[Rfam]
RNA sequence: UGCCGGGGUUUCCAACCUCCGGGGUCACUGAAGAGGCACUUGCUACAUCAUUGCCCGACGUGCGGUUCGGUAUCCCGAUCCAAUCAACGGCAUUCCCGACGCGGGAAAGCAUUGCACUGGUUUCAGUCGCUUUGCCCAACCGUCGCUGCGGUCAACCCGACCU
Numbered sequence: 001u002g003c004c005g006g007g008g009u010u011u012c013c014a015a016c017c018u019c020c021g022g023g024g025u026c027a028c029u030g031a032a033g034a035g036g037c038a039c040u041u042g043c044u045a046c047a048u049c050a051u052u053g054c055c056c057g058a059c060g061u062g063c064g065g066u067u068c069g070g071u072a073u074c075c076c077g078a079u080c081c082a083a084u085c086a087a088c089g090g091c092a093u094u095c096c097c098g099a100c101g102c103g104g105g106a107a108a109g110c111a112u113u114g115c116a117c118u119g120g121u122u123u124c125a126g127u128c129g130c131u132u133u134g135c136c137c138a139a140c141c142g143u144c145g146c147u148g149c150g151g152u153c154a155a156c157c158c159g160a161c162c163u
Stems, first nucleotide, its partner, number of pairs: 001024001003022006035055004062143003084104002112126003116122001
This 163-nucleotide sequence from a Rhodobacterales bacterium belongs to the Rfam family "speF leader".
By type it is a cis-regulatory leader.
Its family is annotated with regulation of gene expression in the Gene Ontology.
The base pairs follow the family's consensus structure, which was predicted with RNAalifold.
Rfam describes the family as follows. This family is a putative regulatory RNA structure that is found upstream of the speF gene encoding ornithine decarboxylase in Agrobacterium tumefaciens and other alpha-proteobacteria.